[Rfam]
RNA sequence: GUGAAUGGUAGAGGUGCAAAAACCAUCAGUAAAUAUGCAGAGGCAGAAUAGGCUGGCGUUGAAGCAUAUGGAAAGGGGAAUUUGCCGAAGUAUAAUAAGCCUUAUUCUUAUUAUACUGGUACUUGGAUUGAAUAAGUCCAGUGCUGUCAUAUAGGAAACUAUGUGGAGGGCUAUCAGCUGA
Number, nucleotide and partner (000 for none) at each position: 001g000002u000003g000004a000005a000006u176007g175008g174009u173010a172011g171012a000013g000014g000015u000016g085017c084018a083019a082020a081021a000022a000023c078024c077025a000026u000027c000028a000029g000030u000031a000032a000033a069034u068035a067036u066037g065038c064039a000040g000041a000042g000043g000044c000045a000046g000047a000048a000049u000050a000051g000052g000053c000054u000055g000056g000057c000058g000059u000060u000061g000062a000063a000064g038065c037066a036067u035068a034069u033070g000071g000072a000073a000074a000075g000076g000077g024078g023079a000080a000081u020082u019083u018084g017085c016086c000087g000088a000089a117090g116091u115092a114093u113094a112095a111096u110097a109098a108099g107100c000101c000102u000103u000104a000105u000106u000107c099108u098109u097110a096111u095112u094113a093114u092115a091116c090117u089118g145119g144120u143121a142122c141123u140124u000125g139126g138127a137128u136129u135130g000131a000132a000133u000134a000135a129136g128137u127138c126139c125140a123141g122142u121143g120144c119145u118146g000147u166148c165149a164150u163151a162152u161153a160154g000155g000156a000157a000158a000159c000160u153161a152162u151163g150164u149165g148166g147167a000168g000169g000170g000171c011172u010173a009174u008175c007176a006177g000178c000179u000180g000181a000
Rfam assigns this 181-nucleotide sequence from Oceanobacillus sp. J11TS1 to the family "Lysine riboswitch aptamer". Riboswitches are metabolite binding domains within certain messenger RNAs that serve as precision sensors for their corresponding targets. The match comes from Rfam's covariance-model search (120 bits). The organism belongs to Oceanobacillus, within Bacteria.